[Rfam]
RNA sequence: CUCCGAAAUGGCAAACCAUUGGAAACAACGGGACGCAAAGCUACAGGCCUAAUCGAUUAGUAUUGCAGCUGAGCUACCGAAG
Numbered sequence: 001c002u003c004c005g006a007a008a009u010g011g012c013a014a015a016c017c018a019u020u021g022g023a024a025a026c027a028a029c030g031g032g033a034c035g036c037a038a039a040g041c042u043a044c045a046g047g048c049c050u051a052a053u054c055g056a057u058u059a060g061u062a063u064u065g066c067a068g069c070u071g072a073g074c075u076a077c078c079g080a081a082g
Stems, first nucleotide, its partner, number of pairs: 001082001003079001011036002016031002019028003034068001039075004044071003047066002
Description
Rfam assigns this 82-nucleotide RNA sequence from Serpentinicella alkaliphila to the family "c-di-GMP-I-GGC riboswitch aptamer". Its Rfam clan is "c-di-GMP_I riboswitch clan". The organism belongs to Serpentinicella, within Bacteria. Its family is annotated with cyclic-di-GMP binding in the Gene Ontology. The family has 40 seed sequences and 1,298 matches in Rfam 15.1.